[Rfam]
RNA: mir-29 microRNA precursor family
Organism: Leptobrachium leishanense
RNA sequence: AGGAGGCUGGUUUCAUUUGGUGGUUUAGAGUUAACAGUACAAUGUCUAGCACCAUAUGAAAUCAGUGUCCU
Number, nucleotide and partner (000 for none) at each position: 001a071002g070003g069004a068005g066006g000007c065008u064009g063010g062011u061012u060013u059014c058015a057016u000017u000018u054019g053020g052021u051022g050023g000024u000025u000026u048027a047028g046029a045030g000031u000032u000033a000034a000035c000036a000037g000038u000039a000040c000041a000042a000043u000044g000045u029046c028047u027048a026049g000050c022051a021052c020053c019054a018055u000056a000057u015058g014059a013060a012061a011062u010063c009064a008065g007066u005067g000068u004069c003070c002071u001